[Rfam]
RNA: Small nucleolar RNA SNORD22
RNA sequence: CCCCGAUGAGGAAACCCCCACGUGUCUGACCGCCCCCCCCAGCACCAGAGCCUGUGCUCAGGUGGAACCCACUGGUGCUGGCGGGCGGACAGGAGGACACUGCGUUCAGCAGAACGGUCUGAGGGGG
Numbered sequence: 001c002c003c004c005g006a007u008g009a010g011g012a013a014a015c016c017c018c019c020a021c022g023u024g025u026c027u028g029a030c031c032g033c034c035c036c037c038c039c040c041a042g043c044a045c046c047a048g049a050g051c052c053u054g055u056g057c058u059c060a061g062g063u064g065g066a067a068c069c070c071a072c073u074g075g076u077g078c079u080g081g082c083g084g085g086c087g088g089a090c091a092g093g094a095g096g097a098c099a100c101u102g103c104g105u106u107c108a109g110c111a112g113a114a115c116g117g118u119c120u121g122a123g124g125g126g127g
Base pairs, nucleotide, nucleotide: 001126002125003124004123